A member of the RNA family "mir-315 microRNA precursor family" from Magallana gigas, 83 nucleotides long. A reference for the family is Aravin et al. (2003), "The small RNA profile during Drosophila melanogaster development", Dev Cell.
RNA sequence: GUCUCCUCACCUUUUGAUUGUUGCUCAGAAAGCCAUCUCUAAAAAGCGUGGCUAUCGAGCAACAAUCAAAGAUUGAAGGAGAC
Numbered sequence: 001g002u003c004u005c006c007u008c009a010c011c012u013u014u015u016g017a018u019u020g021u022u023g024c025u026c027a028g029a030a031a032g033c034c035a036u037c038u039c040u041a042a043a044a045a046g047c048g049u050g051g052c053u054a055u056c057g058a059g060c061a062a063c064a065a066u067c068a069a070a071g072a073u074u075g076a077a078g079g080a081g082a083c
Stems, first nucleotide, its partner, number of pairs: 001083007012071007020063007028056002031053004

The base pairs follow the family's consensus structure, which was predicted with RNAalifold. Gene Ontology terms of the family: RISC complex and miRNA-mediated post-transcriptional gene silencing.